[Rfam]
RNA sequence: CCUUAAUCCUUGCAACUGACAUGGGUCACUGAAUCAGUCAAACCUUCAGUGACACAUGUUUGUUGUUAGGGUCAAAGGA
Number, nucleotide and partner (000 for none) at each position: 001c000002c078003u077004u076005a000006a072007u071008c070009c069010u068011u000012g066013c065014a064015a063016c062017u000018g000019a059020c058021a000022u056023g055024g000025g053026u052027c051028a050029c049030u048031g047032a046033a000034u000035c000036a000037g000038u000039c000040a000041a000042a000043c000044c000045u000046u032047c031048a030049g029050u028051g027052a026053c025054a000055c023056a022057u000058g020059u019060u000061u000062g016063u015064u014065g013066u012067u000068a010069g009070g008071g007072u006073c000074a000075a000076a004077g003078g002079a000
RNA: mir-891 microRNA precursor family
Organism: Sapajus apella